[Rfam]
RNA sequence: AGGACGGGCCUUUCAGGCAUCCUCUCCUAAAAACUUUUCCGGCCGGUCCAUUUGGACCGGCCUUUUUUUUGAUCCCG
Numbered sequence: 001a002g003g004a005c006g007g008g009c010c011u012u013u014c015a016g017g018c019a020u021c022c023u024c025u026c027c028u029a030a031a032a033a034c035u036u037u038u039c040c041g042g043c044c045g046g047u048c049c050a051u052u053u054g055g056a057c058c059g060g061c062c063u064u065u066u067u068u069u070u071g072a073u074c075c076c077g
Base pairs, nucleotide, nucleotide: 008018009017010016011015041062042061043060044059045058046057047056048055049054

A member of the RNA family "Makes More Granules Regulator RNA (mmgR)" from Sphingomonas changnyeongensis, 77 nucleotides long.
The source organism's lineage runs through Bacteria, Pseudomonadati, Pseudomonadota, Sphingomonadales and Sphingomonas.
Rfam classes the family as a small RNA.